The family of this 105-nucleotide RNA from Aureimonas sp. Leaf324 is "SAM-I/IV (S-adenosyl methionine) riboswitch aptamer". A search with the family's covariance model found it, with a score of 58 bits. The base pairs follow the family's consensus structure, which is taken from published work. Rfam links the family to the GO terms S-adenosylmethionine metabolic process and regulation of gene expression. For this family Rfam cites "The aptamer core of SAM-IV riboswitches mimics the ligand-binding site of SAM-I riboswitches" (Weinberg et al., RNA, 2008). The organism belongs to Aureimonas, within Bacteria.

RNA sequence: CACCAGCAUCAAGAGUUGGACCGAUGUCCAACGCCAACCUGCCGUCCGGGCAAGGUGGCGCUCCGCAAGGGGGAUGUGGCCGCACCGGCAACCAAACGGAGCCCC
Numbered sequence: 001c002a003c004c005a006g007c008a009u010c011a012a013g014a015g016u017u018g019g020a021c022c023g024a025u026g027u028c029c030a031a032c033g034c035c036a037a038c039c040u041g042c043c044g045u046c047c048g049g050g051c052a053a054g055g056u057g058g059c060g061c062u063c064c065g066c067a068a069g070g071g072g073g074a075u076g077u078g079g080c081c082g083c084a085c086c087g088g089c090a091a092c093c094a095a096a097c098g099g100a101g102c103c104c105c
Stems, first nucleotide, its partner, number of pairs: 006077005015032001017030005033059003038055003041051003045101001047099001079089004